Rfam assigns this 106-nucleotide RNA sequence from Phoenix dactylifera to the family "mir-399 microRNA precursor family". The family's consensus secondary structure was predicted with PFOLD. mir-399 was identified in both Arabidopsis thaliana and Oryza sativa computationally and was later experimentally verified. mir-399 is thought to target mRNAs coding for a phosphatase transporter. The mature sequence is excised from the 3' arm of the hairpin. The literature on the family includes a 2004 paper in Mol Cell by Jones-Rhoades and Bartel, "Computational Identification of Plant MicroRNAs and Their Targets, Including a Stress-Induced miRNA". NCBI's taxonomy places the organism under Eukaryota, Spermatophyta, Arecales, Arecaceae, Phoenix.
[Rfam]
RNA sequence: AGUUGGAUUACAGGGCAAAUACUCCCUUGGCAGUCAGCCACUCCAGUACACCGGAGUGCCGAGGAGUGUGCCUACUGCCAAAGGAGAUUUGUCCGGCAAUUCACCU
Numbered sequence: 001a002g003u004u005g006g007a008u009u010a011c012a013g014g015g016c017a018a019a020u021a022c023u024c025c026c027u028u029g030g031c032a033g034u035c036a037g038c039c040a041c042u043c044c045a046g047u048a049c050a051c052c053g054g055a056g057u058g059c060c061g062a063g064g065a066g067u068g069u070g071c072c073u074a075c076u077g078c079c080a081a082a083g084g085a086g087a088u089u090u091g092u093c094c095g096g097c098a099a100u101u102c103a104c105c106u
Stems, first nucleotide, its partner, number of pairs: 005102005011096001013094007022086004028080007